[Rfam]
RNA sequence: UCCUCCGCGAGGGGCGCCUGAAGGAAGCGGCAGGCAACAUGCGGGUCUGACGAACAGGAAGCGGAUAGAGGCGGCGUAGCGGGGUGAUGCGGUCCAAAAGGCCAAAGUCCCAAACUUGCACGGAACGCUACAACGUAGAUCCGACAGACAUAUAGUUCAUGUC
Numbered sequence: 001u002c003c004u005c006c007g008c009g010a011g012g013g014g015c016g017c018c019u020g021a022a023g024g025a026a027g028c029g030g031c032a033g034g035c036a037a038c039a040u041g042c043g044g045g046u047c048u049g050a051c052g053a054a055c056a057g058g059a060a061g062c063g064g065a066u067a068g069a070g071g072c073g074g075c076g077u078a079g080c081g082g083g084g085u086g087a088u089g090c091g092g093u094c095c096a097a098a099a100g101g102c103c104a105a106a107g108u109c110c111c112a113a114a115c116u117u118g119c120a121c122g123g124a125a126c127g128c129u130a131c132a133a134c135g136u137a138g139a140u141c142c143g144a145c146a147g148a149c150a151u152a153u154a155g156u157u158c159a160u161g162u163c
Stems, first nucleotide, its partner, number of pairs: 002014001004013003034162002039156002044151001045149005062143005071136003076131006082110004089102002
RNA: Group II catalytic intron D1-D4-3
Organism: Dyella sp. M7H15-1